The family of this 86-nucleotide sequence from Paspalum vaginatum is "Small nucleolar RNA Z102/R77".
RNA sequence: UAAUGUUUUGUUGAUCGCAAUGUUUCCCAAUUGGUUAGAUAGGCAGCCAUGAUGGCUCCAACUGUAUUAGCUCCAUCUAUUCAUUU
Number, nucleotide and partner (000 for none) at each position: 001u000002a085003a084004u083005g082006u000007u000008u000009u000010g000011u000012u000013g000014a000015u000016c000017g000018c000019a000020a000021u000022g000023u000024u000025u000026c000027c000028c000029a000030a000031u000032u000033g000034g000035u000036u000037a000038g059039a000040u000041a000042g057043g056044c055045a000046g000047c000048c000049a000050u000051g000052a000053u000054g000055g044056c043057u042058c000059c038060a000061a000062c000063u000064g000065u000066a000067u000068u000069a000070g000071c000072u000073c000074c000075a000076u000077c000078u000079a000080u000081u000082c005083a004084u003085u002086u000
The literature on the family includes a 2003 paper in Nucleic Acids Res by Chen et al., "The high diversity of snoRNAs in plants: identification and comparative study of 120 snoRNA genes from Oryza sativa". Its family is annotated with nucleolus and RNA processing in the Gene Ontology. Rfam 15.1 lists 1,346 matches to the family in 224 species. The match comes from Rfam's covariance-model search (63 bits). The family's consensus secondary structure was predicted with PFOLD.